[Rfam]
RNA sequence: CGGUCGGUAACGCCUAAUCCUGCCGCCGGCCGUCGGCACCUUGUCCUCAGGCAGGAGCGGGGGACCCAACGUUCCUCGGUGCACCGUCACCUCGGGGUGAAGCCGCCACCGGCGGCCGGGCUCCUCGGCCCGAACCCGACAGCUCACCUCGUCGGCGUGGAGGAUCACCAUG
Number, nucleotide and partner (000 for none) at each position: 001c000002g000003g000004u000005c000006g000007g000008u000009a000010a000011c157012g156013c155014c154015u000016a000017a000018u056019c055020c054021u053022g052023c051024c050025g000026c000027c000028g000029g000030c000031c000032g000033u000034c000035g000036g000037c000038a000039c000040c000041u000042u000043g000044u000045c000046c000047u000048c000049a000050g024051g023052c022053a021054g020055g019056a018057g152058c151059g150060g149061g148062g147063g000064a000065c000066c000067c094068a000069a000070c000071g000072u000073u000074c000075c000076u000077c000078g000079g000080u000081g000082c000083a000084c000085c000086g000087u000088c000089a000090c000091c000092u000093c000094g067095g137096g136097g135098u000099g000100a000101a000102g000103c115104c114105g113106c112107c000108a000109c000110c000111g000112g106113c105114g104115g103116c000117c000118g131119g130120g129121c128122u000123c000124c000125u000126c000127g000128g121129c120130c119131c118132g000133a000134a000135c097136c096137c095138g000139a000140c000141a000142g000143c000144u000145c000146a000147c062148c061149u060150c059151g058152u057153c000154g014155g013156c012157g011158u000159g000160g000161a000162g000163g000164a000165u000166c000167a000168c000169c000170a000171u000172g000
Shown here is a 172-nucleotide RNA from Micromonospora olivasterospora, a member of the family "c-di-AMP riboswitch aptamer (ydaO/yuaA leader)".
About the family: This family represents a conserved RNA structure found upstream of the ydaO and yuaA genes in Bacillus subtilis and related genes in other bacteria. The ydaO/yuaA element is thought to act as a genetic 'off' switch for the ydaO and yuaA genes in its native state. It is believed that the element may be triggered during osmotic shock leading to activation of ydaO, a predicted amino acid transporter gene, and members of the yuaA-yubG operon which code for KtrA and KtrB K+ transporters.